The family of this 112-nucleotide sequence from Quadrisphaera granulorum is "SAM (S-adenosyl methionine) riboswitch aptamer". The base pairs follow the family's consensus structure, which is taken from published work. Gene Ontology terms of the family: S-adenosylmethionine metabolic process and regulation of gene expression. The source organism's lineage runs through Bacteria, Bacillati, Actinomycetes, Kineosporiaceae and Quadrisphaera. The match comes from Rfam's covariance-model search (95 bits). For this family Rfam cites "The aptamer core of SAM-IV riboswitches mimics the ligand-binding site of SAM-I riboswitches" (Weinberg et al., RNA, 2008).
[Rfam]
RNA sequence: GGUCAUGAGCGCCAGCGCCAAGCCCCGGCUCGCUGGCCGGCAACCCUGCUCGUCAUGGGGUGCUCCGGGUGAAGACCAGGCGUGUGCCCACCGGCACACGCAAGGACGACGA
Numbered sequence: 001g002g003u004c005a006u007g008a009g010c011g012c013c014a015g016c017g018c019c020a021a022g023c024c025c026c027g028g029c030u031c032g033c034u035g036g037c038c039g040g041c042a043a044c045c046c047u048g049c050u051c052g053u054c055a056u057g058g059g060g061u062g063c064u065c066c067g068g069g070u071g072a073a074g075a076c077c078a079g080g081c082g083u084g085u086g087c088c089c090a091c092c093g094g095c096a097c098a099c100g101c102a103a104g105g106a107c108g109a110c111g112a
Base pairs, nucleotide, nucleotide: 001077002076003075004074009038011037012036013035014034015033016032021030022029039064040063041062044060045059046058047055048054080101081100082099083098084097085096086095087094088093